[Rfam]
RNA sequence: GGGUGUUCUGAAGACCUGCUUUCUAGGCCACGUGCUGAGGACGCUCGUUCCUCUCGGGCCGCGCGCCCGCCUAGGGGAAAGUCCCCGGACCCCGGGCAGAGAGUGCCGCGUGCUCCGGCGCGCUGUAACCUGUCUCGCUGGCUCCGCGUAACACACCGCCAAGACGCCCCCGGGCGGAGCGGGGAGCUGGGACAAGGCGCCCGUCAGUCCCAUAGGAACGCAGGUGGUGCCGCCCGACCGCACCAACACAACGGGGCUCACUCUCAGAACACC
Numbered sequence: 001g002g003g004u005g006u007u008c009u010g011a012a013g014a015c016c017u018g019c020u021u022u023c024u025a026g027g028c029c030a031c032g033u034g035c036u037g038a039g040g041a042c043g044c045u046c047g048u049u050c051c052u053c054u055c056g057g058g059c060c061g062c063g064c065g066c067c068c069g070c071c072u073a074g075g076g077g078a079a080a081g082u083c084c085c086c087g088g089a090c091c092c093c094g095g096g097c098a099g100a101g102a103g104u105g106c107c108g109c110g111u112g113c114u115c116c117g118g119c120g121c122g123c124u125g126u127a128a129c130c131u132g133u134c135u136c137g138c139u140g141g142c143u144c145c146g147c148g149u150a151a152c153a154c155a156c157c158g159c160c161a162a163g164a165c166g167c168c169c170c171c172g173g174g175c176g177g178a179g180c181g182g183g184g185a186g187c188u189g190g191g192a193c194a195a196g197g198c199g200c201c202c203g204u205c206a207g208u209c210c211c212a213u214a215g216g217a218a219c220g221c222a223g224g225u226g227g228u229g230c231c232g233c234c235c236g237a238c239c240g241c242a243c244c245a246a247c248a249c250a251a252c253g254g255g256g257c258u259c260a261c262u263c264u265c266a267g268a269a270c271a272c273c
Stems, first nucleotide, its partner, number of pairs: 002273010014225006022075007037053005080258002083256004095107004108123006125198002131194006145186001147184001156182004166175003227243004232238001
Dot-bracket structure: .((((((((((..((((((..(((((((........(((((.......)))))...............)))))))....[[.[[[[........((((.....))))((((((....)))))).((....((((((........(.(........((((......(((....)))...)))).).)..))))))..)).....................)))))).((((.(.....).)))).........]]]]]].....))))))))))
A member of the RNA family "RNase MRP" from Alligator mississippiensis, 273 nucleotides long. A search with the family's covariance model found it, with a score of 160 bits. A reference for the family is Schmitt et al. (1993), "Secondary structure of RNase MRP RNA as predicted by phylogenetic comparison", FASEB J. The source organism's lineage runs through Eukaryota, Teleostomi, Archelosauria, Archosauria and Alligator. Its family is annotated with rRNA processing, ribonuclease MRP complex and ribonuclease MRP activity in the Gene Ontology. The base pairs follow the family's consensus structure, which is taken from published work. Rfam describes the family as follows. RNase MRP is an enzymatically active ribonucleoprotein with two distinct roles in eukaryotes. By type it is a ribozyme.